[Rfam]
RNA: Mammalian CPEB3 ribozyme
Organism: Chelydra serpentina
RNA sequence: AAACUGUAUUAUGGGGCUGUGGAAGAAGCUCUCAUGUCUCAGGCCCUGUUAGAUUUUUACGAAUCUGCAAAUUCUGCU
Numbered sequence: 001a002a003a004c005u006g007u008a009u010u011a012u013g014g015g016g017c018u019g020u021g022g023a024a025g026a027a028g029c030u031c032u033c034a035u036g037u038c039u040c041a042g043g044c045c046c047u048g049u050u051a052g053a054u055u056u057u058u059a060c061g062a063a064u065c066u067g068c069a070a071a072u073u074c075u076g077c078u
Stems, first nucleotide, its partner, number of pairs: 013046003017042002021078002024075004028040001050067007